This 71-nucleotide sequence belongs to the Rfam family "Actino-pnp RNA". The family's consensus secondary structure is taken from published work.
RNA sequence: GGCGGUCUUCGGUAGUGGCUGCCGGGCUCCCCGGAUCUGGGGCAGGUCGGCCGCUUCGAUCGACGGCCGUA
Numbered sequence: 001g002g003c004g005g006u007c008u009u010c011g012g013u014a015g016u017g018g019c020u021g022c023c024g025g026g027c028u029c030c031c032c033g034g035a036u037c038u039g040g041g042g043c044a045g046g047u048c049g050g051c052c053g054c055u056u057c058g059a060u061c062g063a064c065g066g067c068c069g070u071a
Base pairs, nucleotide, nucleotide: 002070003069004068005067006066007065009063010062011061012060013059017055018054019053021051022050023049024048025047027045028044